[Rfam]
RNA sequence: GACAAAUAAACCGAAUACCCUCAUAUAAUAAUGGGAAUAUGGCCCAUGAGUCUCUACCUGACUACCGUAAAUGGUCGGACUAUGAGGAAAGUAGCUGUCUGG
Numbered sequence: 001g002a003c004a005a006a007u008a009a010a011c012c013g014a015a016u017a018c019c020c021u022c023a024u025a026u027a028a029u030a031a032u033g034g035g036a037a038u039a040u041g042g043c044c045c046a047u048g049a050g051u052c053u054c055u056a057c058c059u060g061a062c063u064a065c066c067g068u069a070a071a072u073g074g075u076c077g078g079a080c081u082a083u084g085a086g087g088a089a090a091g092u093a094g095c096u097g098u099c100u101g102g
Stems, first nucleotide, its partner, number of pairs: 019087007029049001031047005058078007